[Rfam]
RNA: Group II catalytic intron D1-D4-4
RNA sequence: UAGUUGGUGAAAGUCCAACCCAAGGAGGGGCCAAGCCACCUUUGUAGCUAGGAUGCUUGCGCAUGGCGAAAUCUGUGUGUAAAAGCGCAUCGACAAAAGUACCUGUCAGAGAUAGGGCGAGCAACGACCCAGGCCGCAACACCA
Numbered sequence: 001u002a003g004u005u006g007g008u009g010a011a012a013g014u015c016c017a018a019c020c021c022a023a024g025g026a027g028g029g030g031c032c033a034a035g036c037c038a039c040c041u042u043u044g045u046a047g048c049u050a051g052g053a054u055g056c057u058u059g060c061g062c063a064u065g066g067c068g069a070a071a072u073c074u075g076u077g078u079g080u081a082a083a084a085g086c087g088c089a090u091c092g093a094c095a096a097a098a099g100u101a102c103c104u105g106u107c108a109g110a111g112a113u114a115g116g117g118c119g120a121g122c123a124a125c126g127a128c129c130c131a132g133g134c135c136g137c138a139a140c141a142c143c144a
Stems, first nucleotide, its partner, number of pairs: 020044001022042003052091005057082006066073001099118001102116005121137002